[Rfam]
RNA sequence: GGAUCCGGCGGGCCACGAACUCCCCCAAAGAACCUGGGGAAAAGAACCAACCCCCCUCCUCCCACCCACCCGUCGACCACCGUCACCCAAACGAGUGACGCGGUUGCAACGAGCGGGCACGGAGGGUUACGUUCGCCGCAAACAACCACACAAAGACUUCGGCCCCCGACAGGACGGCAAUCCUGACCGAGGGCCUGACCACUCAGGAAGAAACGGCUUCCCA
Numbered sequence: 001g002g003a004u005c006c007g008g009c010g011g012g013c014c015a016c017g018a019a020c021u022c023c024c025c026c027a028a029a030g031a032a033c034c035u036g037g038g039g040a041a042a043a044g045a046a047c048c049a050a051c052c053c054c055c056c057u058c059c060u061c062c063c064a065c066c067c068a069c070c071c072g073u074c075g076a077c078c079a080c081c082g083u084c085a086c087c088c089a090a091a092c093g094a095g096u097g098a099c100g101c102g103g104u105u106g107c108a109a110c111g112a113g114c115g116g117g118c119a120c121g122g123a124g125g126g127u128u129a130c131g132u133u134c135g136c137c138g139c140a141a142a143c144a145a146c147c148a149c150a151c152a153a154a155g156a157c158u159u160c161g162g163c164c165c166c167c168g169a170c171a172g173g174a175c176g177g178c179a180a181u182c183c184u185g186a187c188c189g190a191g192g193g194c195c196u197g198a199c200c201a202c203u204c205a206g207g208a209a210g211a212a213a214c215g216g217c218u219u220c221c222c223a
Base pairs, nucleotide, nucleotide: 007203008202010200017067083098084097085096086095088093103137105135106134161195162194163193164192165191167189168188171184172183173182174181206221207220208219209218210217

A member of the RNA family "Streptomyces sRNA 4677" from Actinobacteria bacterium OK074, 223 nucleotides long. Rfam describes the family as follows. Located in the intergenic region between anti-sigma factor SCO4677 gene and a putative regulatory protein gene SCO4676. scr4677 expression requires the SCO4677 activity and scr4677 sRNA itself seem to affect the levels of the SCO4676-associated transcripts. A search with the family's covariance model found it, with a score of 72 bits. For this family Rfam cites "Complex intra-operonic dynamics mediated by a small RNA in Streptomyces coelicolor" (Hindra et al., PLoS One, 2014).